T-box leader: a 196-nucleotide RNA sequence from Alkalicella caledoniensis. NCBI's taxonomy places the organism under Bacteria, Bacillota, Clostridia, Eubacteriales, Alkalicella. Its family is annotated with tRNA binding in the Gene Ontology.
RNA sequence: CAGUUAACGUUGAAAAAAGCCAAGUAAAUUGUAAAUGACAGUACAGGGAGCAAAGGGGAUUGAGAACUUUGCCUGUCAUCAAUUGAAACCCACUUUUGGAGUUAACAGGAUUGCCCCUUUAUCGGCUUUUGAGGAGAAUAUCAAAUUAUUGAUAUUAAUAUGGGUGGUACCGCGGAAUUCAAUCUUCGUCCCUAGA
Numbered sequence: 001c002a003g004u005u006a007a008c009g010u011u012g013a014a015a016a017a018a019g020c021c022a023a024g025u026a027a028a029u030u031g032u033a034a035a036u037g038a039c040a041g042u043a044c045a046g047g048g049a050g051c052a053a054a055g056g057g058g059a060u061u062g063a064g065a066a067c068u069u070u071g072c073c074u075g076u077c078a079u080c081a082a083u084u085g086a087a088a089c090c091c092a093c094u095u096u097u098g099g100a101g102u103u104a105a106c107a108g109g110a111u112u113g114c115c116c117c118u119u120u121a122u123c124g125g126c127u128u129u130u131g132a133g134g135a136g137a138a139u140a141u142c143a144a145a146u147u148a149u150u151g152a153u154a155u156u157a158a159u160a161u162g163g164g165u166g167g168u169a170c171c172g173c174g175g176a177a178u179u180c181a182a183u184c185u186u187c188g189u190c191c192c193u194a195g196a
Stems, first nucleotide, its partner, number of pairs: 007102002015097004027084005039075003050072006107118003137156007162192003172189005